Rfam assigns this 95-nucleotide RNA from Manihot esculenta to the family "MIR535 microRNA precursor family". The sequence is in the family's curated seed alignment. A reference for the family is Zeng et al. (2010), "Conservation and divergence of microRNAs and their functions in Euphorbiaceous plants", Nucleic Acids Res.
RNA sequence: AUUAUUGGUUGACAACGAGAGAGAGCACGUUUGUCAGCAUUUUGUGUUAGGGUCAUGACUGUUUACAAGCGUGCUCCCUAUCGUUGUCAUAAAUG
Numbered sequence: 001a002u003u004a005u006u007g008g009u010u011g012a013c014a015a016c017g018a019g020a021g022a023g024a025g026c027a028c029g030u031u032u033g034u035c036a037g038c039a040u041u042u043u044g045u046g047u048u049a050g051g052g053u054c055a056u057g058a059c060u061g062u063u064u065a066c067a068a069g070c071g072u073g074c075u076c077c078c079u080a081u082c083g084u085u086g087u088c089a090u091a092a093a094u095g
Base pairs, nucleotide, nucleotide: 010089011088012087013086014085016083017082020079021078023076025074026073027072028071029070030069031068032067033066034065